[Rfam]
RNA sequence: UGGCAGGGCUUCCUGCCCUUCCGUAACCGUCUCCUCGGAGAC
Numbered sequence: 001u002g003g004c005a006g007g008g009c010u011u012c013c014u015g016c017c018c019u020u021c022c023g024u025a026a027c028c029g030u031c032u033c034c035u036c037g038g039a040g041a042c
Stems, first nucleotide, its partner, number of pairs: 002022002005019005029042005
PhotoRC-I RNA: a 42-nucleotide RNA sequence. The family's consensus secondary structure is taken from published work. The family's RNA type in Rfam is cis-regulatory element.